[Rfam]
RNA sequence: GAGUGAAAUGAUAGCAACCAUUUUUCAGGACUGACCUGAAAUGAAGAGAAUACUCUUUGCUGAUCACUU
Numbered sequence: 001g002a003g004u005g006a007a008a009u010g011a012u013a014g015c016a017a018c019c020a021u022u023u024u025u026c027a028g029g030a031c032u033g034a035c036c037u038g039a040a041a042u043g044a045a046g047a048g049a050a051u052a053c054u055c056u057u058u059g060c061u062g063a064u065c066a067c068u069u
Stems, first nucleotide, its partner, number of pairs: 001069006
This 69-nucleotide sequence from Erinaceus europaeus belongs to the Rfam family "Small nucleolar RNA SNORD2". The source organism's lineage runs through Eukaryota, Chordata, Sarcopterygii, Boreoeutheria and Erinaceus. A search with the family's covariance model found it, with a score of 85 bits. The base pairs follow the family's consensus structure, which was predicted with WAR.